[Rfam]
RNA sequence: AGACGAACCUCUGGAAAGCCGGCGCCCGUGCUACGGGCGCCGCACCGACGGAGUAAGGGCGCCCGCCUCGGGAGCGGCGCCCGAAUCUCUCAGGUCACGGGACAGAGGGGGGUCG
Numbered sequence: 001a002g003a004c005g006a007a008c009c010u011c012u013g014g015a016a017a018g019c020c021g022g023c024g025c026c027c028g029u030g031c032u033a034c035g036g037g038c039g040c041c042g043c044a045c046c047g048a049c050g051g052a053g054u055a056a057g058g059g060c061g062c063c064c065g066c067c068u069c070g071g072g073a074g075c076g077g078c079g080c081c082c083g084a085a086u087c088u089c090u091c092a093g094g095u096c097a098c099g100g101g102a103c104a105g106a107g108g109g110g111g112g113u114c115g
Stems, first nucleotide, its partner, number of pairs: 008108006020042009044095003047091002051089003057082007
RNA: Glycine riboswitch aptamer
Organism: Elioraea tepida